[Rfam]
Nucleotides: 152
Stems, first nucleotide, its partner, number of pairs: 011137004018033006034132006044056001057117003065092004095111004
Number, partner (000 for none) and nucleotide at each position: 001000g002000g003000c004000g005000c006000g007000c008000a009000a010000c011137c012136g013135c014134c015000g016000a017000g018033u019032c020031c021030g022029c023028g024000u025000c026000c027000a028023c029022g030021c031020g032019g033018a034132g035131c036130c037129g038128g039127g040000g041000a042000c043000c044056c045000a046000a047000u048000c049000u050000c051000u052000c053000c054000c055000c056044g057117g058116g059115g060000u061000g062000a063000a064000u065092c066091g067090g068089g069000a070000g071000c072000g073000c074000c075000c076000g077000c078000c079000c080000a081000c082000g083000g084000a085000c086000g087000c088000g089068c090067c091066c092065g093000u094000a095111g096110g097109g098108c099000g100000a101000c102000u103000u104000c105000c106000a107000c108098g109097c110096c111095c112000g113000a114000a115059c116058c117057c118000g119000u120000c121000a122000g123000c124000u125000a126000a127039c128038c129037c130036g131035g132034u133000a134014g135013g136012c137011g138000g139000c140000c141000g142000u143000g144000g145000a146000a147000g148000a149000a150000g151000g152000a